Shown here is a 65-nucleotide sequence from Thiomonas sp. X19, a member of the family "Fluoride riboswitch aptamer (crcB RNA motif)". The match comes from Rfam's covariance-model search (42 bits).
RNA sequence: UGCAUCCCAGGAGAUGACAUCCUCCUGACCCCAACCGCCUCCCGGCUGAUGAUGUCUGUUCUGCG
Dot-bracket structure: .........[[[[..((((((]]]]...........(((....)))....)))))).........